A member of the RNA family "Small nucleolar RNA SNORD79" from Calyptomena viridis, 76 nucleotides long. Rfam 15.1 lists 784 matches to the family in 651 species. The literature on the family includes a 2002 paper in Mol Cell Biol by Galardi et al., "Purified box C/D snoRNPs are able to reproduce site-specific 2'-O-methylation of target RNA in vitro". Rfam describes the family as follows. snoRNA U79 or Z22 is found in intron 7 of the gas5 gene in humans and is also present in mice. Taxonomically the source falls in Calyptomena (Eukaryota, Tetrapoda, Sauropsida, Sauria). Rfam classes the family as a C/D-box small nucleolar RNA.

[Rfam]
RNA sequence: UACUGUUUGUGAUGAGUUCUAAGCAAUGGGAAUCUCUCUGAGAGAGGCUGAGGAGAACUCUCUUGCUGAAACAGUA
Numbered sequence: 001u002a003c004u005g006u007u008u009g010u011g012a013u014g015a016g017u018u019c020u021a022a023g024c025a026a027u028g029g030g031a032a033u034c035u036c037u038c039u040g041a042g043a044g045a046g047g048c049u050g051a052g053g054a055g056a057a058c059u060c061u062c063u064u065g066c067u068g069a070a071a072c073a074g075u076a
Stems, first nucleotide, its partner, number of pairs: 001076007